[Rfam]
RNA: M-box riboswitch aptamer (ykoK leader)
RNA sequence: UAAUAGAUUUGUUAGGCGAGGCUUCUACACAAACACAGGGUACUGCCCAGAAACGUCGAGAGACGCCAAUGGGUAGAACAUGAAUAGUCGACAUAAGGCUUUUCUGAAUGUACCUAAAAAUUAUUACGAUAAUUUUUUACGUUGUAUAGUGCUAAAACUCAACGAUUAAUCAUGAUU
Dot-bracket structure: ....(...(((([.((...(((..(((.((((......(((((.(((((....((((....))))....))))).......(((..(((......])))..))).....))))).(((((((........)))))))....)))).))).)))....))..))....))...)....
Numbered sequence: 001u002a003a004u005a006g007a008u009u010u011g012u013u014a015g016g017c018g019a020g021g022c023u024u025c026u027a028c029a030c031a032a033a034c035a036c037a038g039g040g041u042a043c044u045g046c047c048c049a050g051a052a053a054c055g056u057c058g059a060g061a062g063a064c065g066c067c068a069a070u071g072g073g074u075a076g077a078a079c080a081u082g083a084a085u086a087g088u089c090g091a092c093a094u095a096a097g098g099c100u101u102u103u104c105u106g107a108a109u110g111u112a113c114c115u116a117a118a119a120a121u122u123a124u125u126a127c128g129a130u131a132a133u134u135u136u137u138u139a140c141g142u143u144g145u146a147u148a149g150u151g152c153u154a155a156a157a158c159u160c161a162a163c164g165a166u167u168a169a170u171c172a173u174g175a176u177u
Stems, first nucleotide, its partner, number of pairs: 005173001009169002011163002013096001015159002020153003025149003029145004039114005045074005054065004082104003087099003116137007